[Rfam]
RNA sequence: CCGGGCCCUGUUUCAAGUAAUCCAGGAUAGGCUGUCCUGCCGUUCGGCCUGUUCUCCAUUACUUGGCUCAGGUCCCGG
Numbered sequence: 001c002c003g004g005g006c007c008c009u010g011u012u013u014c015a016a017g018u019a020a021u022c023c024a025g026g027a028u029a030g031g032c033u034g035u036c037c038u039g040c041c042g043u044u045c046g047g048c049c050u051g052u053u054c055u056c057c058a059u060u061a062c063u064u065g066g067c068u069c070a071g072g073u074c075c076c077g078g
Base pairs, nucleotide, nucleotide: 002077003076004075005074007072008071009070010069014065015064016063017062018061019060020059021058024055025054026053027052028051029050030049031048032047033046

Background: The family of this 78-nucleotide RNA from Ornithorhynchus anatinus is "mir-26 microRNA precursor family". The literature on the family includes a 2001 paper in Science by Lagos-Quintana et al., "Identification of novel genes coding for small expressed RNAs". Gene Ontology terms of the family: RISC complex and miRNA-mediated post-transcriptional gene silencing.